[Rfam]
pan motif: a 98-nucleotide RNA sequence from Desulfofundulus salinus. The source organism's lineage runs through Bacteria, Bacillati, Bacillota, Eubacteriales and Desulfofundulus.

RNA sequence: GGGAUGGUAUCCCCGCGGGAACCAUACCUCUUAUUAAGAGUACCUCUAAAACUAAAUACGUUUUGCCGCUUGGAGCCGGGAAGGACCGAGACGGAGGU
Numbered sequence: 001g002g003g004a005u006g007g008u009a010u011c012c013c014c015g016c017g018g019g020a021a022c023c024a025u026a027c028c029u030c031u032u033a034u035u036a037a038g039a040g041u042a043c044c045u046c047u048a049a050a051a052c053u054a055a056a057u058a059c060g061u062u063u064u065g066c067c068g069c070u071u072g073g074a075g076c077c078g079g080g081a082a083g084g085a086c087c088g089a090g091a092c093g094g095a096g097g098u
Stems, first nucleotide, its partner, number of pairs: 001029003004025005010020002066094003069090005076084002